[Rfam]
Nucleotides: 081
Stems, first nucleotide, its partner, number of pairs: 001081004
Number, partner (000 for none) and nucleotide at each position: 001081c002080a003079g004078u005000a006000g007000u008000g009000a010000u011000g012000a013000a014000g015000u016000a017000a018000a019000g020000g021000a022000c023000a024000u025000g026000g027000u028000u029000u030000c031000g032000c033000a034000u035000a036000u037000u038000u039000a040000u041000a042000c043000u044000g045000a046000u047000a048000a049000u050000a051000a052000u053000g054000a055000u056000u057000a058000c059000a060000c061000c062000a063000a064000c065000c066000u067000u068000g069000g070000c071000u072000g073000u074000c075000u076000g077000a078004a079003c080002u081001g